Source information:
Shown here is a 76-nucleotide RNA from Caenorhabditis elegans, a member of the family "mir-235 microRNA precursor family". It is one of the family's seed sequences.

[Rfam]
RNA sequence: CAGGAUCAGGCCUUGGCUGAUUGCAAAAUUGUUCACCGUGAAAAUUAAAUAUUGCACUCUCCCCGGCCUGAUCUGA
Numbered sequence: 001c002a003g004g005a006u007c008a009g010g011c012c013u014u015g016g017c018u019g020a021u022u023g024c025a026a027a028a029u030u031g032u033u034c035a036c037c038g039u040g041a042a043a044a045u046u047a048a049a050u051a052u053u054g055c056a057c058u059c060u061c062c063c064c065g066g067c068c069u070g071a072u073c074u075g076a
Base pairs, nucleotide, nucleotide: 003074004073005072006071007070008069009068010067011066012065015063016062019059020058022056023055024054025053027052028050029049030048031046

The literature on the family includes a 2009 paper in Genome Res by de Wit et al., "Repertoire and evolution of miRNA genes in four divergent nematode species".
The base pairs follow the family's consensus structure, which was predicted with RNAalifold.
Lineage of the source: Eukaryota > Bilateria > Protostomia > Rhabditida > Caenorhabditis.